[Rfam]
RNA sequence: UGGUCGCGAGGGCUGUAUUCGGCGGUCCGCUGGGGAUAAAACCUCACCCGGCUA
Numbered sequence: 001u002g003g004u005c006g007c008g009a010g011g012g013c014u015g016u017a018u019u020c021g022g023c024g025g026u027c028c029g030c031u032g033g034g035g036a037u038a039a040a041a042c043c044u045c046a047c048c049c050g051g052c053u054a
Stems, first nucleotide, its partner, number of pairs: 001054006008047001010028007031046005
Rfam assigns this 54-nucleotide RNA from delta proteobacterium MLMS-1 to the family "DUF3800-VI RNA". The sequence is in the family's curated seed alignment. The family's consensus secondary structure is taken from published work.